[Rfam]
RNA sequence: UUCUUAUGAAGAGUGACCGAGGGAUAGGCCUGUUGACGUCACAGCAACCUUCCUGUUGGAGUGGUGCUAAUUCCUGCAGACUCAUAGAUUCUGCGAGAUAAGAG
Numbered sequence: 001u002u003c004u005u006a007u008g009a010a011g012a013g014u015g016a017c018c019g020a021g022g023g024a025u026a027g028g029c030c031u032g033u034u035g036a037c038g039u040c041a042c043a044g045c046a047a048c049c050u051u052c053c054u055g056u057u058g059g060a061g062u063g064g065u066g067c068u069a070a071u072u073c074c075u076g077c078a079g080a081c082u083c084a085u086a087g088a089u090u091c092u093g094c095g096a097g098a099u100a101a102g103a104g
Base pairs, nucleotide, nucleotide: 001104002103003102004101005100006099007098013042014041015040016039017038021031022030023029025076026075027074028073043068044067045066046065048064049063050061051060052059053058072096077093078092079091080090082088
RNA: SAM riboswitch aptamer (S box leader)